[Rfam]
RNA sequence: GGUUCGGGAGCUUUCCGGUGGGACGGAAAGCAUGAAUGGAACCUGGCACCCCUUUCGCCAAGCGGCGCGACCGUGACCCCGACGGAUGCGUC
Numbered sequence: 001g002g003u004u005c006g007g008g009a010g011c012u013u014u015c016c017g018g019u020g021g022g023a024c025g026g027a028a029a030g031c032a033u034g035a036a037u038g039g040a041a042c043c044u045g046g047c048a049c050c051c052c053u054u055u056c057g058c059c060a061a062g063c064g065g066c067g068c069g070a071c072c073g074u075g076a077c078c079c080c081g082a083c084g085g086a087u088g089c090g091u092c
Stems, first nucleotide, its partner, number of pairs: 001043005010031008064092006071085003
Notes
A member of the RNA family "Rhodo-rpoB RNA" from Paragemmobacter aquarius, 92 nucleotides long. Rfam classes the family as a cis-regulatory element. It scores 73 bits against the family's covariance model. The family's consensus secondary structure is taken from published work.